A member of the RNA family "Iron response element I" from Sinocyclocheilus anshuiensis, 36 nucleotides long. Its family is annotated with response to iron ion in the Gene Ontology. The family has 62 seed sequences and 6,829 matches in Rfam 15.1. NCBI's taxonomy places the organism under Eukaryota, Opisthokonta, Actinopteri, Otomorpha, Sinocyclocheilus. The family's RNA type in Rfam is cis-regulatory element.
RNA sequence: GAGGUUCUUGCUUCAACAGUGAUUGAGCGGAACUUC
Dot-bracket structure: ((((((((.(.((((((...).))))))))))))))